[Rfam]
RNA sequence: ACCUGCAUUCGAAAGUGAUCGCGGCCUGGCCGUGGCCGGGUCAUCGAUAGUGCAGGGAGAGGAAUGCCGAGAGCCUUCCCGUGUCUGAGGGGAGCGUCUGUGCCCUCCAGACCCUGUCGCUGUCGGACA
Numbered sequence: 001a002c003c004u005g006c007a008u009u010c011g012a013a014a015g016u017g018a019u020c021g022c023g024g025c026c027u028g029g030c031c032g033u034g035g036c037c038g039g040g041u042c043a044u045c046g047a048u049a050g051u052g053c054a055g056g057g058a059g060a061g062g063a064a065u066g067c068c069g070a071g072a073g074c075c076u077u078c079c080c081g082u083g084u085c086u087g088a089g090g091g092g093a094g095c096g097u098c099u100g101u102g103c104c105c106u107c108c109a110g111a112c113c114c115u116g117u118c119g120c121u122g123u124c125g126g127a128c129a
Stems, first nucleotide, its partner, number of pairs: 002056008015044006023037004067126004072121003083112005088106004

The record is a 129-nucleotide RNA sequence from Tricholaema leucomelas, which matches "Small nucleolar RNA SNORA71" in Rfam. The family's RNA type in Rfam is H/ACA-box small nucleolar RNA. A reference for the family is Ganot et al. (1997), "The family of box ACA small nucleolar RNAs is defined by an evolutionarily conserved secondary structure and ubiquitous sequence elements essential for RNA accumulation", Genes Dev. Rfam's curators write: The members of this family belong to the H/ACA class of snoRNAs which bind a number of proteins (including dyskerin, Gar1p and Nop10p) to form snoRNP complexes. This class of snoRNAs are thought to guide the sites of modification of uridines to pseudouridines by forming direct base pairing interactions with substrate RNAs. This family includes U71 (SNORA71), ACA39 (SNORA39) and ACA60 (SNORA60). U71 and ACA60 are predicted to guide the pseudouridylation of U406 and U1004 in 18S rRNA respectively. Gene Ontology terms of the family: RNA processing and nucleolus.